Fluoride riboswitch aptamer (crcB RNA motif): a 60-nucleotide RNA sequence from Paenibacillus sp. YN15. The family's consensus secondary structure is taken from published work. Lineage of the source: Bacteria > Bacillati > Bacillota > Caryophanales > Paenibacillus.
[Rfam]
RNA sequence: AGUUGAAUAGGCGAUGGAGUUCGCCAUAACCGCCGCAAGGCUAAUGACUCCUACCAGAGA
Numbered sequence: 001a002g003u004u005g006a007a008u009a010g011g012c013g014a015u016g017g018a019g020u021u022c023g024c025c026a027u028a029a030c031c032g033c034c035g036c037a038a039g040g041c042u043a044a045u046g047a048c049u050c051c052u053a054c055c056a057g058a059g060a
Stems, first nucleotide, its partner, number of pairs: 010025004016051006032041003